[Rfam]
Shown here is a 73-nucleotide RNA sequence from Camelus dromedarius, a member of the family "Small nucleolar RNA SNORD113/SNORD114 family". The family's RNA type in Rfam is C/D-box small nucleolar RNA. Gene Ontology terms of the family: RNA processing and nucleolus.

RNA sequence: UGGAUCAGUAAUAAUGACUGGUUGCAGGUAAGUCGUGGAUGAUGAAUAACGUACGUCUGAUACUGUGAUCCAA
Number, nucleotide and partner (000 for none) at each position: 001u000002g071003g070004a069005u068006c067007a000008g000009u000010a000011a000012u000013a000014a000015u000016g000017a000018c000019u000020g000021g000022u000023u000024g000025c000026a000027g000028g000029u000030a000031a000032g000033u000034c000035g000036u000037g000038g000039a000040u000041g000042a000043u000044g000045a000046a000047u000048a000049a000050c000051g000052u000053a000054c000055g000056u000057c000058u000059g000060a000061u000062a000063c000064u000065g000066u000067g006068a005069u004070c003071c002072a000073a000
About the family: The imprinted human domain at 14q32 contains two clusters of tandemly repeated small nucleolar RNAs named 14q(I) and 14q(II) snoRNAs.
The organism belongs to Camelus, within Eukaryota.